[Rfam]
RNA sequence: UGUUGUAUCAAAAAUGAUUCAGGGCCUCGAACGAGACCCGUAGCCAAUUUUUGGAAGCCUCUCCGCCAGGAGGGGUUA
Numbered sequence: 001u002g003u004u005g006u007a008u009c010a011a012a013a014a015u016g017a018u019u020c021a022g023g024g025c026c027u028c029g030a031a032c033g034a035g036a037c038c039c040g041u042a043g044c045c046a047a048u049u050u051u052u053g054g055a056a057g058c059c060u061c062u063c064c065g066c067c068a069g070g071a072g073g074g075g076u077u078a
Base pairs, nucleotide, nucleotide: 022039023038024037026035027034028033056077057076058075059074060073061072062071063070064069
Dot-bracket structure: .....................(((.(((....))).)))................(((((((((....))))))))).